[Rfam]
RNA sequence: UCACAUCCGUUGGGGUGCCCGUUUCGGGCUGAGAGGUCGCAAGACCAACCCACCGAACCUGAUCCGGCUCGCACCGGCGGAGGGAACGGAAACUGCGCCACA
Numbered sequence: 001u002c003a004c005a006u007c008c009g010u011u012g013g014g015g016u017g018c019c020c021g022u023u024u025c026g027g028g029c030u031g032a033g034a035g036g037u038c039g040c041a042a043g044a045c046c047a048a049c050c051c052a053c054c055g056a057a058c059c060u061g062a063u064c065c066g067g068c069u070c071g072c073a074c075c076g077g078c079g080g081a082g083g084g085a086a087c088g089g090a091a092a093c094u095g096c097g098c099c100a101c102a
Base pairs, nucleotide, nucleotide: 006090007089008088009087010086011052012051013050014049017029018028019027020026021025036045037044038043058083059082060081064077065076066075067074
The record is a 102-nucleotide sequence from Roseovarius gaetbuli, which matches "TPP riboswitch aptamer (THI element)" in Rfam. The base pairs follow the family's consensus structure, which is taken from published work. Taxonomically the source falls in Roseovarius (Bacteria, Pseudomonadati, Alphaproteobacteria, Roseobacteraceae).